[Rfam]
RNA sequence: GGUUGUAAAUUCAAGGCCAUAGCAGAAAUGCUCAGGGUGUGGCUCUGUCAGAUUCCAAUAAAUCUGGGAAUUCUGCU
Numbered sequence: 001g002g003u004u005g006u007a008a009a010u011u012c013a014a015g016g017c018c019a020u021a022g023c024a025g026a027a028a029u030g031c032u033c034a035g036g037g038u039g040u041g042g043c044u045c046u047g048u049c050a051g052a053u054u055c056c057a058a059u060a061a062a063u064c065u066g067g068g069a070a071u072u073c074u075g076c077u
Stems, first nucleotide, its partner, number of pairs: 014044001016043003021077007028040003049066006

This 77-nucleotide RNA from Alligator sinensis belongs to the Rfam family "Mammalian CPEB3 ribozyme".
Rfam's curators write: The mammalian CPEB3 ribozyme is a self cleaving RNA located in the second intron of the CPEB3 gene which belongs to a family of genes regulating messenger RNA polyadenylation.
The base pairs follow the family's consensus structure, which is taken from published work.